[Rfam]
RNA sequence: UGUAAAUACCCUCCUUGGGUGUUUCCUCCCUAGACUUAGCCGCGCCAAGAGCGCGGUUUUUUUUGGCUUUU
Numbered sequence: 001u002g003u004a005a006a007u008a009c010c011c012u013c014c015u016u017g018g019g020u021g022u023u024u025c026c027u028c029c030c031u032a033g034a035c036u037u038a039g040c041c042g043c044g045c046c047a048a049g050a051g052c053g054c055g056g057u058u059u060u061u062u063u064u065g066g067c068u069u070u071u
Base pairs, nucleotide, nucleotide: 008020009019010018011017040056041055042054043053044052045051
RNA: Makes More Granules Regulator RNA (mmgR)